Shown here is a 247-nucleotide RNA from Chunga burmeisteri, a member of the family "Small nucleolar RNA SNORD17".

RNA sequence: GUGAGGUGAUGACGAAGUUUAUCCAUUCUCUGAGUGCAGUGGUGCUGCCCUCCUGCAGCACCCUGAUUCCUGUUCUAGGGUCUAGGUGCUGUGCAGCCUCCAGAGACCCUCCAGUCUCCCAGUGUCCUACUGGGGGCUGCUGUGGUGUGUGGCUGGCUGCCUGCAGGAGUGAAGUGGUGCCAGGCAGGUUGGAGCCCCUUUUUGGGGGGCUCCAUCCCCACUGAGAUGAGGGGUGAUGUCUGAUCAC
Numbered sequence: 001g002u003g004a005g006g007u008g009a010u011g012a013c014g015a016a017g018u019u020u021a022u023c024c025a026u027u028c029u030c031u032g033a034g035u036g037c038a039g040u041g042g043u044g045c046u047g048c049c050c051u052c053c054u055g056c057a058g059c060a061c062c063c064u065g066a067u068u069c070c071u072g073u074u075c076u077a078g079g080g081u082c083u084a085g086g087u088g089c090u091g092u093g094c095a096g097c098c099u100c101c102a103g104a105g106a107c108c109c110u111c112c113a114g115u116c117u118c119c120c121a122g123u124g125u126c127c128u129a130c131u132g133g134g135g136g137c138u139g140c141u142g143u144g145g146u147g148u149g150u151g152g153c154u155g156g157c158u159g160c161c162u163g164c165a166g167g168a169g170u171g172a173a174g175u176g177g178u179g180c181c182a183g184g185c186a187g188g189u190u191g192g193a194g195c196c197c198c199u200u201u202u203u204g205g206g207g208g209g210c211u212c213c214a215u216c217c218c219c220a221c222u223g224a225g226a227u228g229a230g231g232g233g234u235g236a237u238g239u240c241u242g243a244u245c246a247c
Stems, first nucleotide, its partner, number of pairs: 010246003017239002020236001023233002026230003030225002034221002039185002042181001043179006049171001050169005056163002061088001063086002068080004093160006106146002112139005118134007187219002190214006197207002
Lineage of the source: Eukaryota > Craniata > Tetrapoda > Theropoda > Chunga. The family's RNA type in Rfam is C/D-box small nucleolar RNA. The literature on the family includes a 2001 paper in EMBO J by Huttenhofer et al., "RNomics: an experimental approach that identifies 201 candidates for novel, small, non-messenger RNAs in mouse". From the family's description: The snoRNA HBI-43 belongs to the C/D family of snoRNAs, guiding 2'O-ribose methylation at position U3797 of the 28S rRNA. Pseudouridylation in position U3797 is predicted to be guided by the H/ACA snoRNA ACA48.